[Rfam]
RNA sequence: CCGUGCUAGACGGGGAGGUAGCGGUGCCCUGUACCAGCAAUCCGCUGUAGCUGGGUUGAAUUCCCGCCAUAGGGGUUGGUUUGUGAGGUCUGGCCAGCGUAAGGGGCGUUGAGGAUCGGGUCUUGCGCAGCGCAGGUUCUCGAACCGUGUCAGGUCCUGACGGAAGCAGCACUAAGGGAAACCCUGCGGGUGCCGCAAGGCAGCCUGGUCUGAGCAACCUGCGUUGGUACGCUUGGAAGCCAUAUCUCGAAGGUGGGUGCACGG
Numbered sequence: 001c002c003g004u005g006c007u008a009g010a011c012g013g014g015g016a017g018g019u020a021g022c023g024g025u026g027c028c029c030u031g032u033a034c035c036a037g038c039a040a041u042c043c044g045c046u047g048u049a050g051c052u053g054g055g056u057u058g059a060a061u062u063c064c065c066g067c068c069a070u071a072g073g074g075g076u077u078g079g080u081u082u083g084u085g086a087g088g089u090c091u092g093g094c095c096a097g098c099g100u101a102a103g104g105g106g107c108g109u110u111g112a113g114g115a116u117c118g119g120g121u122c123u124u125g126c127g128c129a130g131c132g133c134a135g136g137u138u139c140u141c142g143a144a145c146c147g148u149g150u151c152a153g154g155u156c157c158u159g160a161c162g163g164a165a166g167c168a169g170c171a172c173u174a175a176g177g178g179a180a181a182c183c184c185u186g187c188g189g190g191u192g193c194c195g196c197a198a199g200g201c202a203g204c205c206u207g208g209u210c211u212g213a214g215c216a217a218c219c220u221g222c223g224u225u226g227g228u229a230c231g232c233u234u235g236g237a238a239g240c241c242a243u244a245u246c247u248c249g250a251a252g253g254u255g256g257g258u259g260c261a262c263g264g
Base pairs, nucleotide, nucleotide: 001264002263003262004261005260006259009057010056011055012030013029014028015027017025019023034054035053036052037051038050063257064256065255066254067253068252072248073247074246075245076244078241079240080239081238082237084235085234086233087232091229092228095226096225097224098223099222100221103219104218106215107214113211114210115209116208117207118206119205120204121203122199123198124197125196126195127194128190131188132187133186134185135184137180138179139178140177141176147172148171149170150169155164156163157162
Rfam assigns this 264-nucleotide sequence from Desulforamulus hydrothermalis to the family "Bacterial large signal recognition particle RNA".
Pairs were carried over by alignment from the consensus structure, which is taken from published work.
Its family is annotated with SRP-dependent cotranslational protein targeting to membrane, signal sequence recognition and signal recognition particle, plasma membrane targeting in the Gene Ontology.
The match comes from Rfam's covariance-model search (210 bits).
The signal recognition particle (SRP) is a universally conserved ribonucleoprotein involved in the co-translational targeting of proteins to membranes.